RNA sequence: UCCUGACAAAGGUGCAUUUGCACUUUUGACAUUUGCCACGACAGGAGAUUGACAUG
Numbered sequence: 001u002c003c004u005g006a007c008a009a010a011g012g013u014g015c016a017u018u019u020g021c022a023c024u025u026u027u028g029a030c031a032u033u034u035g036c037c038a039c040g041a042c043a044g045g046a047g048a049u050u051g052a053c054a055u056g
Stems, first nucleotide, its partner, number of pairs: 002045004007028007
RNA: Mu-gpT-DE RNA